[Rfam]
RNA sequence: CACAAUUGAAUAACGGCUCGCAGCAAGGGUGGUUGGCUCAUCUCCGUAUGUAAGGAGGUGAGCAGAAUGACAGUUUUCGAGGCACUUUACCUCAUGCUUACCUUCGGACUUCUGAUCGUAGCAAUUCUGUCGUUUAAAAAACAAAAAUAGACCGCCUGAGUCUGCCCGAUUCGCGCGGUCUAUUUCCCAAAAAAAUAGAGAGCCAACCACCCUCAAACGAGGGUCAUUCCUUUGUGCAAUCGACCGUAGGUGUUACCCGCACCUAGG
Numbered sequence: 001c002a003c004a005a006u007u008g009a010a011u012a013a014c015g016g017c018u019c020g021c022a023g024c025a026a027g028g029g030u031g032g033u034u035g036g037c038u039c040a041u042c043u044c045c046g047u048a049u050g051u052a053a054g055g056a057g058g059u060g061a062g063c064a065g066a067a068u069g070a071c072a073g074u075u076u077u078c079g080a081g082g083c084a085c086u087u088u089a090c091c092u093c094a095u096g097c098u099u100a101c102c103u104u105c106g107g108a109c110u111u112c113u114g115a116u117c118g119u120a121g122c123a124a125u126u127c128u129g130u131c132g133u134u135u136a137a138a139a140a141a142c143a144a145a146a147a148u149a150g151a152c153c154g155c156c157u158g159a160g161u162c163u164g165c166c167c168g169a170u171u172c173g174c175g176c177g178g179u180c181u182a183u184u185u186c187c188c189a190a191a192a193a194a195a196u197a198g199a200g201a202g203c204c205a206a207c208c209a210c211c212c213u214c215a216a217a218c219g220a221g222g223g224u225c226a227u228u229c230c231u232u233u234g235u236g237c238a239a240u241c242g243a244c245c246g247u248a249g250g251u252g253u254u255a256c257c258c259g260c261a262c263c264u265a266g267g
Stems, first nucleotide, its partner, number of pairs: 001236005008229002011226001015204005021158001027157003031152001033150002038061003042057004069131005082097003107122001168186002209224004245267001247265007
The record is a 267-nucleotide sequence from Tumebacillus flagellatus, which matches "BsrG" in Rfam. For this family Rfam cites "Novel small RNA-encoding genes in the intergenic regions of Bacillus subtilis" (Saito et al., Gene, 2008). Rfam's curators write: bsrE, bsrG and bsrH pair through intermolecular interactions with antisense sRNAs. They form type I toxin/antitoxin system that includes an mRNA encoding for a short, toxic peptide (bsrE, bsrG and bsrH) and an antitoxin that is comprised of an antisense RNA. bsrG encodes a 39-amino-acid toxin, and the 180 nucleotide antisense sRNA called SR4 acts as the antitoxin (they overlap by 123 nucleotides). Its family is annotated with autolysis and toxin activity in the Gene Ontology.